[Rfam]
RNA sequence: CCAGGGGCUGACAUCCUUGGCUAAUGUAUUUCGCCCUUCCAGGGCU
Numbered sequence: 001c002c003a004g005g006g007g008c009u010g011a012c013a014u015c016c017u018u019g020g021c022u023a024a025u026g027u028a029u030u031u032c033g034c035c036c037u038u039c040c041a042g043g044g045c046u
Stems, first nucleotide, its partner, number of pairs: 001020007033045005
The family of this 46-nucleotide RNA from Cyclobacterium marinum is "Acido-Lenti-1 RNA". It scores 43 bits against the family's covariance model. By type it is a small RNA. Lineage of the source: Bacteria > Cytophagales > Cyclobacteriaceae > Cyclobacterium > Cyclobacterium marinum.